[Rfam]
RNA sequence: UGUGUGGUGACCGCGGACGAUCUGGGCUACAAUGGUCAGGUCGCAAGACGAUGGCGCUGAAACUCAACGCGGACUGCGGGCAGACCCGGGGGCAGUACCCGGCGCCUCCACCCGAGCAGCUGACAAUGCGAGAUCUCGUUUUUACGAGUUCUCAUUCCGUGCGACGGACUUUGUCGAGCUGCUCCGGCGGGGGCGAAACAGGAUCGAUGGCCGCGAAGAAGUGUUGAAUUGUUCCCGGCAUGAUACCGCCGUUAUCGGGUCAAAACCUAAAUGCAAACGAUAACGUUCGCAUGAACGAAGUGCGCCUCGCGGCGUAACCGUUCGGGGUAGGUCCACCUAGCAACAGAACGGCCAUG
Number, nucleotide and partner (000 for none) at each position: 001u000002g000003u000004g000005u000006g000007g000008u000009g000010a000011c000012c000013g000014c000015g000016g000017a000018c000019g000020a000021u000022c000023u000024g000025g000026g000027c000028u000029a000030c000031a000032a000033u000034g000035g000036u000037c000038a000039g000040g049041u048042c047043g000044c000045a000046a000047g042048a041049c040050g000051a000052u000053g235054g234055c000056g232057c231058u000059g000060a000061a000062a000063c000064u227065c226066a225067a224068c223069g222070c221071g000072g000073a000074c000075u000076g000077c213078g212079g211080g000081c209082a208083g000084a000085c000086c102087c101088g100089g099090g098091g000092g000093c000094a000095g000096u000097a000098c090099c089100c088101g087102g086103c195104g194105c193106c192107u191108c190109c189110a000111c000112c000113c000114g000115a000116g000117c000118a000119g000120c000121u000122g000123a000124c000125a000126a000127u000128g000129c000130g000131a000132g000133a000134u000135c000136u000137c000138g000139u000140u000141u000142u000143u000144a000145c000146g000147a000148g000149u000150u000151c000152u000153c000154a000155u000156u000157c000158c000159g000160u000161g000162c000163g000164a000165c000166g000167g000168a000169c000170u000171u000172u000173g000174u000175c000176g000177a000178g000179c000180u000181g000182c000183u000184c000185c000186g000187g000188c000189g109190g108191g107192g106193g105194c104195g103196a000197a000198a000199c000200a000201g000202g000203a000204u000205c000206g000207a000208u082209g081210g000211c079212c078213g077214c000215g000216a000217a000218g000219a000220a000221g070222u069223g068224u067225u066226g065227a064228a000229u000230u000231g057232u056233u000234c054235c053236c251237g250238g249239c248240a000241u262242g261243a260244u000245a000246c258247c257248g239249c238250c237251g236252u000253u000254a000255u000256c000257g247258g246259g000260u243261c242262a241263a000264a000265a000266c000267c000268u000269a000270a000271a000272u000273g000274c000275a000276a000277a000278c000279g000280a000281u000282a000283a000284c000285g000286u000287u000288c000289g000290c000291a000292u000293g000294a000295a000296c000297g000298a000299a000300g000301u000302g000303c000304g000305c000306c000307u000308c000309g000310c000311g000312g000313c000314g000315u000316a000317a000318c000319c000320g000321u000322u000323c000324g000325g338326g337327g336328u335329a000330g353331g352332u351333c350334c000335a328336c327337c326338u325339a000340g000341c000342a000343a000344c000345a000346g000347a000348a000349c000350g333351g332352c331353c330354a000355u000356g000
The family of this 356-nucleotide RNA from Rhodopseudomonas palustris is "Alphaproteobacteria transfer-messenger RNA".
Its Rfam clan is "tRNA clan".
By type it is a non-coding RNA gene.
On this family, see Williams and Bartel, RNA 1996: "Phylogenetic analysis of tmRNA secondary structure".
From the family's description: Bacterial tmRNA, also known as 10Sa RNA or SsrA, is named for its dual tRNA and mRNA-like properties. Its role is to liberate the mRNA from a stalled ribosome. To accomplish this part of the tmRNA is used as a reading frame that ends in a translation stop signal. The broken mRNA is replaced in the ribosome by the tmRNA and translation of the tmRNA leads to addition of a proteolysis tag to the incomplete protein enabling recognition by a protease. Recently a number of permuted tmRNA genes have been found encoded in two parts. tmRNAs have been identified in eubacteria and some chloroplasts but are absent from archaeal and eukaryote nuclear genomes.
The organism belongs to Rhodopseudomonas palustris, within Bacteria.